[Rfam]
RNA sequence: AUACGUGUAGGGUGGAGACGCACAACCAUCGGACUGUGUAGCACAAGGCUUGUUCUAGACGCUUCAUCUCGUCCGCUACCGAUGGUCGAUUCCUCCUCCUGACAAAGCUUUUGCUGAAAAGGGUGUCUUAUGCCACCACAGCAAGCAGGAAACGUCGUCGCGACCCUACGCCCCCUCUGGGCGAGGACCUCGCUAGACACUGGAGUGUCCAACCACUCCUGACGUGCCCUGACACCGACCGUGAGAAGUCGUGUGUGCCGAACGCCGUUUCCGGCAGCCCGGAAACCGA
Numbered sequence: 001a002u003a004c005g006u007g008u009a010g011g012g013u014g015g016a017g018a019c020g021c022a023c024a025a026c027c028a029u030c031g032g033a034c035u036g037u038g039u040a041g042c043a044c045a046a047g048g049c050u051u052g053u054u055c056u057a058g059a060c061g062c063u064u065c066a067u068c069u070c071g072u073c074c075g076c077u078a079c080c081g082a083u084g085g086u087c088g089a090u091u092c093c094u095c096c097u098c099c100u101g102a103c104a105a106a107g108c109u110u111u112u113g114c115u116g117a118a119a120a121g122g123g124u125g126u127c128u129u130a131u132g133c134c135a136c137c138a139c140a141g142c143a144a145g146c147a148g149g150a151a152a153c154g155u156c157g158u159c160g161c162g163a164c165c166c167u168a169c170g171c172c173c174c175c176u177c178u179g180g181g182c183g184a185g186g187a188c189c190u191c192g193c194u195a196g197a198c199a200c201u202g203g204a205g206u207g208u209c210c211a212a213c214c215a216c217u218c219c220u221g222a223c224g225u226g227c228c229c230u231g232a233c234a235c236c237g238a239c240c241g242u243g244a245g246a247a248g249u250c251g252u253g254u255g256u257g258c259c260g261a262a263c264g265c266c267g268u269u270u271c272c273g274g275c276a277g278c279c280c281g282g283a284a285a286c287c288g289a
Stems, first nucleotide, its partner, number of pairs: 014096004023088001025086008036076003040050003058073004097150005153224004157198003160193004165186003169183005202219006232256004236251004267286007